[Rfam]
RNA sequence: UGGAACAAUGAUAGGAGAGUAGUGUCUAUGAACAAAGCACCGUGAUUAAUCUGGUUCUUUGUAAAAUGCAGAGGUCCAUU
Numbered sequence: 001u002g003g004a005a006c007a008a009u010g011a012u013a014g015g016a017g018a019g020u021a022g023u024g025u026c027u028a029u030g031a032a033c034a035a036a037g038c039a040c041c042g043u044g045a046u047u048a049a050u051c052u053g054g055u056u057c058u059u060u061g062u063a064a065a066a067u068g069c070a071g072a073g074g075u076c077c078a079u080u
Base pairs, nucleotide, nucleotide: 001078002077003076004075006073
RNA: Small nucleolar RNA SNORD112